[Rfam]
RNA: mir-9256 microRNA precursor family
Organism: Pipistrellus kuhlii
RNA sequence: AUUUACACUGAGGGGCCAGGUUAUUAUGAUUUCUGAACGCAUAAUAACCUGGCCACUCAGUGUGUGU
Numbered sequence: 001a002u003u004u005a006c007a008c009u010g011a012g013g014g015g016c017c018a019g020g021u022u023a024u025u026a027u028g029a030u031u032u033c034u035g036a037a038c039g040c041a042u043a044a045u046a047a048c049c050u051g052g053c054c055a056c057u058c059a060g061u062g063u064g065u066g067u
Stems, first nucleotide, its partner, number of pairs: 004064009014054004019049010